The family of this 201-nucleotide RNA sequence from Medicago truncatula is "MIR2670 microRNA precursor family". The family has 7 seed sequences and 188 matches in Rfam 15.1. The source organism's lineage runs through Eukaryota, rosids, Fabaceae, Hologalegina and Medicago.
RNA sequence: AUUGGGGUAAAAAGAGAUCAAUUGACUUAGGGUAAAAAAUGUUCAACCCUUAGGAUAAAACUAAAUCUGCUUCGUUUUACCUCAAAAACUUUUUACCGUAGGUAAAAAGAAUCUUCUUGGGGGUAUAAAAAGAACCAAAUUUAAAUUUAUCCUAAGGGUUGAUGUCUUUUUACCCCAAGAUUGGUCUCUUUUUACCCCAAA
Numbered sequence: 001a002u003u004g005g006g007g008u009a010a011a012a013a014g015a016g017a018u019c020a021a022u023u024g025a026c027u028u029a030g031g032g033u034a035a036a037a038a039a040u041g042u043u044c045a046a047c048c049c050u051u052a053g054g055a056u057a058a059a060a061c062u063a064a065a066u067c068u069g070c071u072u073c074g075u076u077u078u079a080c081c082u083c084a085a086a087a088a089c090u091u092u093u094u095a096c097c098g099u100a101g102g103u104a105a106a107a108a109g110a111a112u113c114u115u116c117u118u119g120g121g122g123g124u125a126u127a128a129a130a131a132g133a134a135c136c137a138a139a140u141u142u143a144a145a146u147u148u149a150u151c152c153u154a155a156g157g158g159u160u161g162a163u164g165u166c167u168u169u170u171u172a173c174c175c176c177a178a179g180a181u182u183g184g185u186c187u188c189u190u191u192u193u194a195c196c197c198c199a200a201a
Stems, first nucleotide, its partner, number of pairs: 003199021027178002030175006044164002046159003050155005056149004062143005068137002071134003075130003078125006085118001089109009